[Rfam]
RNA sequence: GCAGGUAAAAGGCAAAGCUGUUGAAAAACAGUGACGCAAAGCUACGGAUCUAAGGGGAUGGGGAUCACUCUAAGACAGCCGGGCUACCUAU
Numbered sequence: 001g002c003a004g005g006u007a008a009a010a011g012g013c014a015a016a017g018c019u020g021u022u023g024a025a026a027a028a029c030a031g032u033g034a035c036g037c038a039a040a041g042c043u044a045c046g047g048a049u050c051u052a053a054g055g056g057g058a059u060g061g062g063g064a065u066c067a068c069u070c071u072a073a074g075a076c077a078g079c080c081g082g083g084c085u086a087c088c089u090a091u
Stems, first nucleotide, its partner, number of pairs: 012037002017032006040085004045081003049075002055070003
Dot-bracket structure: ...........((...((((((....))))))...))..((((.(((.((....(((..........)))...))...)))))))......
Shown here is a 91-nucleotide sequence from Alkalicoccus daliensis, a member of the family "c-di-GMP-I riboswitch aptamer". Rfam's curators write: GEMM was predicted in a large-scale screen for bacterial structured RNA regulatory elements.